[Rfam]
RNA sequence: UCAAAGGCUCUUUUAAGAGCCACUCAUAUUACUCACAGAAGAGCA
Numbered sequence: 001u002c003a004a005a006g007g008c009u010c011u012u013u014u015a016a017g018a019g020c021c022a023c024u025c026a027u028a029u030u031a032c033u034c035a036c037a038g039a040a041g042a043g044c045a
Stems, first nucleotide, its partner, number of pairs: 006021006
Histone 3' UTR stem-loop: a 45-nucleotide RNA from Chanos chanos.
The match comes from Rfam's covariance-model search (36 bits).
By type it is a cis-regulatory element.
About the family: The mRNAs of metazoan histone genes lack a poly-A tail. 3' end processing occurs at a site between a highly conserved stem-loop (modelled by this family) and a purine rich region around 20 nts downstream (the histone downstream element, or HDE).
NCBI's taxonomy places the organism under Eukaryota, Eumetazoa, Otomorpha, Ostariophysi, Chanos.